[Rfam]
RNA sequence: AAAAAAGCAGAGGUCUGUUGCCUAUGCGAGCAGUCCUCUCGUAACCUUCAGGGAUAUAGUAAUCAUUGUUGUUGGGUGAACCUCGGUUCCUUGUUUGUGUCUGUAGGUUCAGUAAAUGGUGGAACAUAG
Numbered sequence: 001a002a003a004a005a006a007g008c009a010g011a012g013g014u015c016u017g018u019u020g021c022c023u024a025u026g027c028g029a030g031c032a033g034u035c036c037u038c039u040c041g042u043a044a045c046c047u048u049c050a051g052g053g054a055u056a057u058a059g060u061a062a063u064c065a066u067u068g069u070u071g072u073u074g075g076g077u078g079a080a081c082c083u084c085g086g087u088u089c090c091u092u093g094u095u096u097g098u099g100u101c102u103g104u105a106g107g108u109u110c111a112g113u114a115a116a117u118g119g120u121g122g123a124a125c126a127u128a129g
Stems, first nucleotide, its partner, number of pairs: 005048003011037002015033003063122008077111007

Rfam assigns this 129-nucleotide sequence from Glycine max to the family "Small nucleolar RNA snoR74". Rfam classes the family as an H/ACA-box small nucleolar RNA.